[Rfam]
RNA sequence: GGAAGGCAUCCGCAUCCGGUGGUGCGGCCGGGCUUCAAACCCGGUUGGGGGCGCCAGCCGCUCCCGGGUCGGUUCGACUCCGGCUGCCUUCC
Numbered sequence: 001g002g003a004a005g006g007c008a009u010c011c012g013c014a015u016c017c018g019g020u021g022g023u024g025c026g027g028c029c030g031g032g033c034u035u036c037a038a039a040c041c042c043g044g045u046u047g048g049g050g051g052c053g054c055c056a057g058c059c060g061c062u063c064c065c066g067g068g069u070c071g072g073u074u075c076g077a078c079u080c081c082g083g084c085u086g087c088c089u090u091c092c
Base pairs, nucleotide, nucleotide: 001092002091003090004089005088006087007086008085011026012025013024014023015022016021027045028044029043030042031041032040047065048064049063050062051061069083070082071081072080
Background
Shown here is a 92-nucleotide sequence from Trinickia caryophylli, a member of the family "Selenocysteine transfer RNA". Taxonomically the source falls in Trinickia (Bacteria, Pseudomonadota, Betaproteobacteria, Burkholderiaceae). A search with the family's covariance model found it, with a score of 76 bits.